The record is a 174-nucleotide RNA from Xylanimonas oleitrophica, which matches "c-di-AMP riboswitch aptamer (ydaO/yuaA leader)" in Rfam. The match comes from Rfam's covariance-model search (59 bits).

RNA sequence: CCCUGUCACCGGCCGGGCACAGACGAAUUCCCAGGACAGGGACGGGGGACCCAACAACGGGCGUCGUCAGACGUCCUCGGGGUGAAGCCGACGCCAGGCCCACGGGCCAGCGCGGCCGGGUGUUUCUCCCACCCGAACCCGACAGCUCACCUCGUAGGCCGAUGGAGAGGUUGA
Dot-bracket structure: (((((((...........................)))))))((((((....(..........................)(((.....(((......................)))..((((.........))))...))).........))))))...................